[Rfam]
RNA sequence: UUAAGGCAUGAUAAUUUAACAACUUGCAUAUUUGGAGGAUUUGAAGACUUUAACUUGCAGACUUGACAAAUUUGAAGACUUUAACU
Number, nucleotide and partner (000 for none) at each position: 001u084002u083003a082004a081005g080006g079007c000008a000009u076010g000011a000012u000013a072014a071015u000016u000017u068018a000019a000020c065021a064022a000023c000024u000025u059026g058027c057028a056029u000030a000031u000032u053033u052034g051035g050036a049037g048038g000039a000040u000041u000042u000043g000044a000045a000046g000047a000048c037049u036050u035051u034052a033053a032054c000055u000056u028057g027058c026059a025060g000061a000062c000063u000064u021065g020066a000067c000068a017069a000070a000071u014072u013073u000074g000075a000076a009077g000078a000079c006080u005081u004082u003083a002084a001085c000086u000